[Rfam]
RNA sequence: UGAUGUUUUCCGAGAGAGACCCGGUGUAUCGGGCGCCGAAGAGGCAAGCUUUUAUGUGUUGGUGGCACAUCAGGAAGUGAAACUUUCAGGCAAAAGGACCGGAAAACGUAC
Numbered sequence: 001u002g003a004u005g006u007u008u009u010c011c012g013a014g015a016g017a018g019a020c021c022c023g024g025u026g027u028a029u030c031g032g033g034c035g036c037c038g039a040a041g042a043g044g045c046a047a048g049c050u051u052u053u054a055u056g057u058g059u060u061g062g063u064g065g066c067a068c069a070u071c072a073g074g075a076a077g078u079g080a081a082a083c084u085u086u087c088a089g090g091c092a093a094a095a096g097g098a099c100c101g102g103a104a105a106a107c108g109u110a111c
Stems, first nucleotide, its partner, number of pairs: 006106007020033004035091003038087002042085003048078006